The record is a 124-nucleotide sequence from Brassica rapa, which matches "MIR9555 microRNA precursor family" in Rfam. Pairs were carried over by alignment from the consensus structure, which was predicted with RNAalifold. Lineage of the source: Eukaryota > Gunneridae > Pentapetalae > Brassiceae > Brassica. Its family is annotated with RISC complex and miRNA-mediated post-transcriptional gene silencing in the Gene Ontology.
[Rfam]
RNA sequence: UUAUAUAUGCGUAUUGCGGGGUUCUAAGCUUUACGGGAAACUCAACCGAAAGUUUCUUAUUUAAAAACUUUCGAUUGAGUUUCCCGUAAAGCUUAGAACCCUGCAAUUACAUACGUAUAUAUAA
Numbered sequence: 001u002u003a004u005a006u007a008u009g010c011g012u013a014u015u016g017c018g019g020g021g022u023u024c025u026a027a028g029c030u031u032u033a034c035g036g037g038a039a040a041c042u043c044a045a046c047c048g049a050a051a052g053u054u055u056c057u058u059a060u061u062u063a064a065a066a067a068c069u070u071u072c073g074a075u076u077g078a079g080u081u082u083c084c085c086g087u088a089a090a091g092c093u094u095a096g097a098a099c100c101c102u103g104c105a106a107u108u109a110c111a112u113a114c115g116u117a118u119a120u121a122u123a124a
Stems, first nucleotide, its partner, number of pairs: 001124012013107008022098015065082006